The record is a 79-nucleotide RNA sequence from Mus musculus, which matches "mir-219 microRNA precursor family" in Rfam. Lineage of the source: Eukaryota > Euarchontoglires > Rodentia > Murinae > Mus. The base pairs follow the family's consensus structure, which was predicted with RNAalifold. The literature on the family includes a 2003 paper in Science by Lim et al., "Vertebrate microRNA genes". The sequence is in the family's curated seed alignment.
RNA sequence: UUCGCCACUGAUUGUCCAAACGCAAUUCUUGUACGAGUCUGCGGCCAACCGAGAAUUGUGGCUGGACAUCUGUGGUUGA
Numbered sequence: 001u002u003c004g005c006c007a008c009u010g011a012u013u014g015u016c017c018a019a020a021c022g023c024a025a026u027u028c029u030u031g032u033a034c035g036a037g038u039c040u041g042c043g044g045c046c047a048a049c050c051g052a053g054a055a056u057u058g059u060g061g062c063u064g065g066a067c068a069u070c071u072g073u074g075g076u077u078g079a
Stems, first nucleotide, its partner, number of pairs: 002078001004076004010070003014067005021060011